Small nucleolar RNA U19: a 124-nucleotide sequence from Raphanus sativus.
A search with the family's covariance model found it, with a score of 60 bits.
The family's consensus secondary structure was predicted with WAR.
Rfam classes the family as an H/ACA-box small nucleolar RNA.
The organism belongs to Raphanus, within Eukaryota.
RNA sequence: AAUUGGUUUAGUUAGGAGGCAUAGAUCAAUCUGGUAUUUUCAAUAUUGUUUUGAUCUUAAUGUCAUUUGAGGAGGAGCUCUGCUUUCCUGUUUUUCUGCUUCUCCCAAACAGCCUCAUACAUUA
Number, nucleotide and partner (000 for none) at each position: 001a000002a000003u000004u021005g020006g000007u018008u017009u016010a000011g000012u000013u000014a000015g000016g009017a008018g007019g000020c005021a004022u000023a000024g000025a000026u000027c000028a000029a000030u000031c000032u000033g000034g046035u045036a044037u043038u042039u000040u000041c000042a038043a037044u036045a035046u034047u000048g000049u000050u000051u000052u000053g000054a000055u000056c000057u000058u117059a000060a115061u000062g113063u112064c000065a000066u109067u108068u107069g106070a000071g105072g104073a103074g102075g101076a100077g099078c098079u000080c000081u000082g000083c000084u000085u000086u000087c000088c000089u000090g000091u000092u000093u000094u000095u000096c000097u000098g078099c077100u076101u075102c074103u073104c072105c071106c069107a068108a067109a066110c000111a000112g063113c062114c000115u060116c000117a058118u000119a000120c000121a000122u000123u000124a000